[Rfam]
A member of the RNA family "RAGATH-18 RNA" from Melghirimyces algeriensis, 67 nucleotides long. Rfam's curators write: Actinobacteria, Firmicutes, Fusobacteria, Thermotogae (1 example). It scores 59 bits against the family's covariance model. The base pairs follow the family's consensus structure, which is taken from published work. Lineage of the source: Bacteria > Bacillati > Bacillota > Thermoactinomycetaceae > Melghirimyces.
RNA sequence: CCUGUGGAGUGUUAAACAAACCGUUGUAGGGAGUUAAGUGCCGAAGCGGGACACGAUGAAACAGGAA
Numbered sequence: 001c002c003u004g005u006g007g008a009g010u011g012u013u014a015a016a017c018a019a020a021c022c023g024u025u026g027u028a029g030g031g032a033g034u035u036a037a038g039u040g041c042c043g044a045a046g047c048g049g050g051a052c053a054c055g056a057u058g059a060a061a062c063a064g065g066a067a
Base pairs, nucleotide, nucleotide: 001065002064003063004062005061009054010053011052012051013050021049022048023047029042030041